[Rfam]
RNA sequence: UGGCCCCGUCGCGACUGGCGAACAGGUGGGCAACCACCGGGGAGCGACCCGCCGGCACCCGCAGCCGCCCGCCUGGGCUGUGUGC
Numbered sequence: 001u002g003g004c005c006c007c008g009u010c011g012c013g014a015c016u017g018g019c020g021a022a023c024a025g026g027u028g029g030g031c032a033a034c035c036a037c038c039g040g041g042g043a044g045c046g047a048c049c050c051g052c053c054g055g056c057a058c059c060c061g062c063a064g065c066c067g068c069c070c071g072c073c074u075g076g077g078c079u080g081u082g083u084g085c
Stems, first nucleotide, its partner, number of pairs: 003053001005051001008048005015041002017073004026037004062080005
This 85-nucleotide RNA from Pauljensenia hongkongensis belongs to the Rfam family "ZMP/ZTP riboswitch aptamer (pfl RNA motif)". Rfam 15.1 lists 3,295 matches to the family in 2,545 species. It scores 56 bits against the family's covariance model. The organism belongs to Pauljensenia, within Bacteria. Rfam links the family to the GO terms regulation of purine nucleotide biosynthetic process and one-carbon metabolic process. Pairs were carried over by alignment from the consensus structure, which is taken from published work.